[Rfam]
RNA sequence: UUCUUAUCACGAAAGGUGGAGGGACUGGCCCUUUGAAGCCUUAGCAACCGGAAUUUAUUUUCACGGUGCUAAUUCCAGCAGUAUAUUCUGAAAGAUAAGUC
Numbered sequence: 001u002u003c004u005u006a007u008c009a010c011g012a013a014a015g016g017u018g019g020a021g022g023g024a025c026u027g028g029c030c031c032u033u034u035g036a037a038g039c040c041u042u043a044g045c046a047a048c049c050g051g052a053a054u055u056u057a058u059u060u061u062c063a064c065g066g067u068g069c070u071a072a073u074u075c076c077a078g079c080a081g082u083a084u085a086u087u088c089u090g091a092a093a094g095a096u097a098a099g100u101c
Stems, first nucleotide, its partner, number of pairs: 003099006013042005021031003025078004043070004048066002050062004074093001079090003
The family of this 101-nucleotide sequence from Listeria innocua is "SAM riboswitch aptamer (S box leader)". Pairs were carried over by alignment from the consensus structure, which is taken from published work.